RNA sequence: CAGUACACUCAUCCAUAAAGUAGGAAACACUACACUGAUCUGAGGAGUUUAGUAGUGCUUUCUACUUUAUGGAUGACUGCACUGU
Dot-bracket structure: .............((((((((((..(.((((((..................)))))).)..))))))))))..............
Numbered sequence: 001c002a003g004u005a006c007a008c009u010c011a012u013c014c015a016u017a018a019a020g021u022a023g024g025a026a027a028c029a030c031u032a033c034a035c036u037g038a039u040c041u042g043a044g045g046a047g048u049u050u051a052g053u054a055g056u057g058c059u060u061u062c063u064a065c066u067u068u069a070u071g072g073a074u075g076a077c078u079g080c081a082c083u084g085u
Stems, first nucleotide, its partner, number of pairs: 014071010026059001028057006
A member of the RNA family "mir-142 microRNA precursor family" from Polypterus senegalus, 85 nucleotides long. The family has 37 seed sequences and 1,555 matches in Rfam 15.1.